[Rfam]
RNA sequence: UUUGGGAAGUGAUGCCAAAGACUCAAACAGAGAAGCCAGCUCUGCAGAAUCGAUUAUUUAUUUGCACGUCAGUCUGAUCCCAAA
Numbered sequence: 001u002u003u004g005g006g007a008a009g010u011g012a013u014g015c016c017a018a019a020g021a022c023u024c025a026a027a028c029a030g031a032g033a034a035g036c037c038a039g040c041u042c043u044g045c046a047g048a049a050u051c052g053a054u055u056a057u058u059u060a061u062u063u064g065c066a067c068g069u070c071a072g073u074c075u076g077a078u079c080c081c082a083a084a
Stems, first nucleotide, its partner, number of pairs: 001084007
The family of this 84-nucleotide sequence from Lupinus albus is "Small nucleolar RNA Z122". NCBI's taxonomy places the organism under Eukaryota, Viridiplantae, rosids, Genisteae, Lupinus. A reference for the family is Chen et al. (2003), "The high diversity of snoRNAs in plants: identification and comparative study of 120 snoRNA genes from Oryza sativa", Nucleic Acids Res. Gene Ontology terms of the family: RNA processing and nucleolus. Rfam classes the family as a C/D-box small nucleolar RNA. The match comes from Rfam's covariance-model search (57 bits).